[Rfam]
RNA sequence: UAACACAUAUUUGCUCCCGCUUAACCAAGACCUAUGGGAGGAUAAAUUACGUCUUAAUAUCGUUAAGUGAAGGGAUUUAACGAAAUAUAGUAUCGC
Numbered sequence: 001u002a003a004c005a006c007a008u009a010u011u012u013g014c015u016c017c018c019g020c021u022u023a024a025c026c027a028a029g030a031c032c033u034a035u036g037g038g039a040g041g042a043u044a045a046a047u048u049a050c051g052u053c054u055u056a057a058u059a060u061c062g063u064u065a066a067g068u069g070a071a072g073g074g075a076u077u078u079a080a081c082g083a084a085a086u087a088u089a090g091u092a093u094c095g096c
Stems, first nucleotide, its partner, number of pairs: 014040005028054004061082007